[Rfam]
RNA sequence: UAUGCUAUACUAGUUGGGUUGCCAAAUCUGUGGGGGAAUCAACUAAUGAUGCUCCUCUCAUGUGAUGCAACCCUUGGCGCUUAGCUUCUUUCGCCAAGCAUAUUACACGCGGUAAAGCCGCUAAAGGAGAAAACAUG
Numbered sequence: 001u002a003u004g005c006u007a008u009a010c011u012a013g014u015u016g017g018g019u020u021g022c023c024a025a026a027u028c029u030g031u032g033g034g035g036g037a038a039u040c041a042a043c044u045a046a047u048g049a050u051g052c053u054c055c056u057c058u059c060a061u062g063u064g065a066u067g068c069a070a071c072c073c074u075u076g077g078c079g080c081u082u083a084g085c086u087u088c089u090u091u092c093g094c095c096a097a098g099c100a101u102a103u104u105a106c107a108c109g110c111g112g113u114a115a116a117g118c119c120g121c122u123a124a125a126g127g128a129g130a131a132a133a134c135a136u137g
Stems, first nucleotide, its partner, number of pairs: 018071005073098007085129006109121004
Rfam assigns this 137-nucleotide sequence from Streptococcus sanguinis to the family "PreQ1-II (pre queuosine) riboswitch aptamer". It scores 85 bits against the family's covariance model. The family's consensus secondary structure is taken from published work. Taxonomically the source falls in Streptococcus sanguinis (Bacteria, Bacillota, Bacilli, Lactobacillales). preQ1-II riboswitch was first reported for Weinberg et al. 2007 it was recognised in Streptococcaceae and Lactococcus families in 5' untranslated regions of genes of a membrane protein classified as COG4708 or DUF988. Meyers et al. 2008 confirm that preQ1-II recognise the queuosine (Q) precursor pre-queuosine 1 (preQ1). Q is a hyper modified nucleoside present in some anticodons in tRNAs (Try, Asn, Asp and His). For this family Rfam cites "Identification of 22 candidate structured RNAs in bacteria using the CMfinder comparative genomics pipeline" (Weinberg et al., Nucleic Acids Res, 2007).